This 58-nucleotide sequence from Mycolicibacterium insubricum belongs to the Rfam family "F6 TB sRNA". On this family, see Arnvig and Young, Mol Microbiol 2009: "Identification of small RNAs in Mycobacterium tuberculosis". Taxonomically the source falls in Mycobacterium (subgen. Mycolicibacterium) (Bacteria, Actinomycetota, Actinomycetes, Mycobacterium). The base pairs follow the family's consensus structure, which is taken from published work. The family has 16 seed sequences and 310 matches in Rfam 15.1.

[Rfam]
RNA sequence: UGGGCAGCCCCGCGCUGUCGUCUGACCCCCCCGACCCGACGGCAGCGCGGGGCCCCAC
Numbered sequence: 001u002g003g004g005c006a007g008c009c010c011c012g013c014g015c016u017g018u019c020g021u022c023u024g025a026c027c028c029c030c031c032c033g034a035c036c037c038g039a040c041g042g043c044a045g046c047g048c049g050g051g052g053c054c055c056c057a058c
Base pairs, nucleotide, nucleotide: 003056004055007053008052009051010050011049012048013047014046015045016044017043018042019041020040021039022038